[Rfam]
RNA sequence: AGCCGGGGACGACCCCGGUUUCCUGUCUUUCACGUCCGGGACGGCCCGG
Numbered sequence: 001a002g003c004c005g006g007g008g009a010c011g012a013c014c015c016c017g018g019u020u021u022c023c024u025g026u027c028u029u030u031c032a033c034g035u036c037c038g039g040g041a042c043g044g045c046c047c048g049g
Stems, first nucleotide, its partner, number of pairs: 001020008036049005